[Rfam]
RNA sequence: CCCGGUUCGCCGGGACGAAAUGUGGUCGUCGUUCGACUGAAUCGCAAG
Dot-bracket structure: (((((....))))).(((.....(((((.....)))))...)))....
Numbered sequence: 001c002c003c004g005g006u007u008c009g010c011c012g013g014g015a016c017g018a019a020a021u022g023u024g025g026u027c028g029u030c031g032u033u034c035g036a037c038u039g040a041a042u043c044g045c046a047a048g
Stems, first nucleotide, its partner, number of pairs: 001014005016044003024038005